[Rfam]
RNA sequence: CGAGACGGCACCUCGUACGGGGUCCGUCCGAGCCGCUUCGGCGGCCGGAUGCAAGGACCCGCGAUGACCCGUAGGGGUGAGAGGAGUUCGCGCAUG
Numbered sequence: 001c002g003a004g005a006c007g008g009c010a011c012c013u014c015g016u017a018c019g020g021g022g023u024c025c026g027u028c029c030g031a032g033c034c035g036c037u038u039c040g041g042c043g044g045c046c047g048g049a050u051g052c053a054a055g056g057a058c059c060c061g062c063g064a065u066g067a068c069c070c071g072u073a074g075g076g077g078u079g080a081g082a083g084g085a086g087u088u089c090g091c092g093c094a095u096g
Stems, first nucleotide, its partner, number of pairs: 014063003020060006026050003033044004
RNA: malK-III RNA